[Rfam]
RNA sequence: AAACGAGGGACAUCGUCGGGGGCUCUGAUUCAACUUCUGUGGGGCCAAACCGAAACAACACCUUCGAAGA
Numbered sequence: 001a002a003a004c005g006a007g008g009g010a011c012a013u014c015g016u017c018g019g020g021g022g023c024u025c026u027g028a029u030u031c032a033a034c035u036u037c038u039g040u041g042g043g044g045c046c047a048a049a050c051c052g053a054a055a056c057a058a059c060a061c062c063u064u065c066g067a068a069g070a
Base pairs, nucleotide, nucleotide: 004066005065006064007063008062009061016053017052018051019050022046023044024043025042026041

The family of this 70-nucleotide RNA sequence from Trypanosoma brucei is "Trypanosomatid snoRNA TB8Cs4H2". It is one of the family's seed sequences. On this family, see Myslyuk et al., BMC Bioinformatics 2008: "Psiscan: a computational approach to identify H/ACA-like and AGA-like non-coding RNA in trypanosomatid genomes".